mir-9440 microRNA precursor family: a 67-nucleotide sequence from Nematostella vectensis. Its family is annotated with RISC complex and miRNA-mediated post-transcriptional gene silencing in the Gene Ontology. The base pairs follow the family's consensus structure, which was predicted with RNAalifold.
RNA sequence: AUUAUCAAUGAGAGUGUCAACCUGCCGCGAAGGUCAAUGAGUGGGCUGCUGCUCCUCUUUGUGAAGC
Numbered sequence: 001a002u003u004a005u006c007a008a009u010g011a012g013a014g015u016g017u018c019a020a021c022c023u024g025c026c027g028c029g030a031a032g033g034u035c036a037a038u039g040a041g042u043g044g045g046c047u048g049c050u051g052c053u054c055c056u057c058u059u060u061g062u063g064a065a066g067c
Base pairs, nucleotide, nucleotide: 005064006063007062010059011058012057013056014055018051019050021048025044026043027042028041031038

A search with the family's covariance model found it, with a score of 80 bits. The source organism's lineage runs through Eukaryota, Cnidaria, Anthozoa, Actiniaria and Nematostella.